[Rfam]
RNA sequence: AAGCUGUACGUGAGAAUUGUAGGAAAUUAAACCAAUGGAAAUUUAAUUCUACCAACACAAUUGGUUUAAUUUCCUCCAAUAUCUUACUUACAGUUU
Numbered sequence: 001a002a003g004c005u006g007u008a009c010g011u012g013a014g015a016a017u018u019g020u021a022g023g024a025a026a027u028u029a030a031a032c033c034a035a036u037g038g039a040a041a042u043u044u045a046a047u048u049c050u051a052c053c054a055a056c057a058c059a060a061u062u063g064g065u066u067u068a069a070u071u072u073c074c075u076c077c078a079a080u081a082u083c084u085u086a087c088u089u090a091c092a093g094u095u096u
Base pairs, nucleotide, nucleotide: 004093005092006091007090008089011086012085013084014083016080017079018078019077021075023073024072025071026070027069028068029067030066032064033063
RNA: MIR2275 microRNA precursor family